[Rfam]
RNA sequence: AAAACACUUAUAGUUUUGCUUAAGGCAAAACUCCUAUUAUUGUAUGCACUUUUUUCAGCUGCGCUUAUAAAAGUGCGGGAAAAUUAUCAAUCCUCAGAAACCGAUGUUUCUUCCGGUUGAUAAUUUUAUAA
Numbered sequence: 001a002a003a004a005c006a007c008u009u010a011u012a013g014u015u016u017u018g019c020u021u022a023a024g025g026c027a028a029a030a031c032u033c034c035u036a037u038u039a040u041u042g043u044a045u046g047c048a049c050u051u052u053u054u055u056c057a058g059c060u061g062c063g064c065u066u067a068u069a070a071a072a073g074u075g076c077g078g079g080a081a082a083a084u085u086a087u088c089a090a091u092c093c094u095c096a097g098a099a100a101c102c103g104a105u106g107u108u109u110c111u112u113c114c115g116g117u118u119g120a121u122a123a124u125u126u127u128a129u130a131a
Base pairs, nucleotide, nucleotide: 012032013031014030015029016028017027018026019025020024046076047075048074049073050072051071052070053069082125083124084123085122086121087120088119089118090117092116093115096111097110098109099108100107101106
Dot-bracket structure: ...........(((((((((...))))))))).............((((((((...............)))))))).....(((((((((.((..((((((....))))))...)))))))))))......